[Rfam]
RNA sequence: UGUAUUAAUGUAGAUAAGGGAAGUCGGCAAAACCGAUCUGUAACUUCGGGAUAAGGAUUGGCUCUAAAGGUUGGUAGAGUGGACAUUGUAGAGCCUAGAUCAGGGGGUGAGUUUGUAGAGCGGGCAACUGUUUUGCGAGCUUAUUUUUGGGUUUAGGUGUUCUGCUUUGAGGGGCUUGCUCCGUUCUGCUUUACAAUUAACAACUAAUUUAGAACUGUGACGAUCACGGGGAAUCCAACUGUUUAAUUAAAACAAAGCAUUGUGAAUAGCUGAAAAGCCCUUGACACAAUGUGAUUUCUGCCCAGUGCUCUGAAUGUCAAAGUGAAGAGAUUCAACCUAGCACGGGUAAACGGCGGGAGUAACUAUGACUCUCUUAAGGUAGCCAAAUGCCUCGUCAUCUAAUUAGUGACGCGCAUGAAUGGAUCAAUGAGAUUCCCACUGUCCCUAACUACUAUACAGCGAAACCACUGCUAGGGGAACGGGCCUAGCA
Numbered sequence: 001u002g003u004a005u006u007a008a009u010g011u012a013g014a015u016a017a018g019g020g021a022a023g024u025c026g027g028c029a030a031a032a033c034c035g036a037u038c039u040g041u042a043a044c045u046u047c048g049g050g051a052u053a054a055g056g057a058u059u060g061g062c063u064c065u066a067a068a069g070g071u072u073g074g075u076a077g078a079g080u081g082g083a084c085a086u087u088g089u090a091g092a093g094c095c096u097a098g099a100u101c102a103g104g105g106g107g108u109g110a111g112u113u114u115g116u117a118g119a120g121c122g123g124g125c126a127a128c129u130g131u132u133u134u135g136c137g138a139g140c141u142u143a144u145u146u147u148u149g150g151g152u153u154u155a156g157g158u159g160u161u162c163u164g165c166u167u168u169g170a171g172g173g174g175c176u177u178g179c180u181c182c183g184u185u186c187u188g189c190u191u192u193a194c195a196a197u198u199a200a201c202a203a204c205u206a207a208u209u210u211a212g213a214a215c216u217g218u219g220a221c222g223a224u225c226a227c228g229g230g231g232a233a234u235c236c237a238a239c240u241g242u243u244u245a246a247u248u249a250a251a252a253c254a255a256a257g258c259a260u261u262g263u264g265a266a267u268a269g270c271u272g273a274a275a276a277g278c279c280c281u282u283g284a285c286a287c288a289a290u291g292u293g294a295u296u297u298c299u300g301c302c303c304a305g306u307g308c309u310c311u312g313a314a315u316g317u318c319a320a321a322g323u324g325a326a327g328a329g330a331u332u333c334a335a336c337c338u339a340g341c342a343c344g345g346g347u348a349a350a351c352g353g354c355g356g357g358a359g360u361a362a363c364u365a366u367g368a369c370u371c372u373c374u375u376a377a378g379g380u381a382g383c384c385a386a387a388u389g390c391c392u393c394g395u396c397a398u399c400u401a402a403u404u405a406g407u408g409a410c411g412c413g414c415a416u417g418a419a420u421g422g423a424u425c426a427a428u429g430a431g432a433u434u435c436c437c438a439c440u441g442u443c444c445c446u447a448a449c450u451a452c453u454a455u456a457c458a459g460c461g462a463a464a465c466c467a468c469u470g471c472u473a474g475g476g477g478a479a480c481g482g483g484c485c486u487a488g489c490a
Stems, first nucleotide, its partner, number of pairs: 001458004010452004015447002018444003035059005044049001060216002063213006069205005074194009084164002088160003096155006103148021217221001229437007236429002240254003257292008266281001269278003296423003300354003305351002307347004312343001315342003323334004355373006374378001394410005471488005
RNA: Eukaryotic large subunit ribosomal RNA, nucleotides 2159 to 2648
Organism: Dictyostelium purpureum